[Rfam]
RNA sequence: GCUUAUUCUCAGGGCGGGGUGCAAGUCCCCACCGGCGGUAAAUCACCUUCUACGGUGAAAGCCCGCGAGCGCUCAGCCAGUCUCUUGCAGUUUGGUUAGAGGUCAGCAGAUCCGGUGUAAUUCCGGGGCCGACGGUUAUAGUCCGGAUGGGAGAGAGUAACG
Numbered sequence: 001g002c003u004u005a006u007u008c009u010c011a012g013g014g015c016g017g018g019g020u021g022c023a024a025g026u027c028c029c030c031a032c033c034g035g036c037g038g039u040a041a042a043u044c045a046c047c048u049u050c051u052a053c054g055g056u057g058a059a060a061g062c063c064c065g066c067g068a069g070c071g072c073u074c075a076g077c078c079a080g081u082c083u084c085u086u087g088c089a090g091u092u093u094g095g096u097u098a099g100a101g102g103u104c105a106g107c108a109g110a111u112c113c114g115g116u117g118u119a120a121u122u123c124c125g126g127g128g129c130c131g132a133c134g135g136u137u138a139u140a141g142u143c144c145g146g147a148u149g150g151g152a153g154a155g156a157g158u159a160a161c162g
Stems, first nucleotide, its partner, number of pairs: 003160008017029003031142002033131002035066004061129002069107002111127005133145003
Rfam assigns this 162-nucleotide sequence from Serratia proteamaculans to the family "FMN riboswitch aptamer (RFN element)". The organism belongs to Serratia proteamaculans, within Bacteria. Rfam's curators write: The RFN element is a highly conserved domain that is found frequently in the 5'-untranslated regions of prokaryotic mRNAs that encode for flavin mononucleotide (FMN) biosynthesis and transport proteins.